[Rfam]
RNA: Purine riboswitch aptamer
RNA sequence: UUAAAUUAAAUAUUCGCCACUCAUAUAAUAGCAAGGAUAAGGCUUGCAAGUUUCUACCGGUUUACCGUAAAUAAACCGACUAUGAGUGAAGCAUGCUUAAUG
Numbered sequence: 001u002u003a004a005a006u007u008a009a010a011u012a013u014u015c016g017c018c019a020c021u022c023a024u025a026u027a028a029u030a031g032c033a034a035g036g037a038u039a040a041g042g043c044u045u046g047c048a049a050g051u052u053u054c055u056a057c058c059g060g061u062u063u064a065c066c067g068u069a070a071a072u073a074a075a076c077c078g079a080c081u082a083u084g085a086g087u088g089a090a091g092c093a094u095g096c097u098u099a100a101u102g
Base pairs, nucleotide, nucleotide: 018088019087020086021085022084023083024082025081029049031047032046033045034044035043058078059077060076061075062074063073064072